[Rfam]
RNA sequence: AACAAUCUUUGGGGCAGGGUGCAAUUCCCUACCGGCGGUAGAGCCCGCGAGCCGAAAGGCUGAUCUGGUGAGAUUCCAGAGCCGACAGUAUAGUCUGGAUGAAAAAAGAUGAAU
Numbered sequence: 001a002a003c004a005a006u007c008u009u010u011g012g013g014g015c016a017g018g019g020u021g022c023a024a025u026u027c028c029c030u031a032c033c034g035g036c037g038g039u040a041g042a043g044c045c046c047g048c049g050a051g052c053c054g055a056a057a058g059g060c061u062g063a064u065c066u067g068g069u070g071a072g073a074u075u076c077c078a079g080a081g082c083c084g085a086c087a088g089u090a091u092a093g094u095c096u097g098g099a100u101g102a103a104a105a106a107a108g109a110u111g112a113a114u
Base pairs, nucleotide, nucleotide: 005110006109007108008107009106010105017029018028019027031094032093033084034083035048036047037046038045043082044081051060052059053058064080065079066078067077068076086097087096088095
FMN riboswitch aptamer (RFN element): a 114-nucleotide RNA sequence from Hespellia stercorisuis.
The organism belongs to Hespellia stercorisuis, within Bacteria.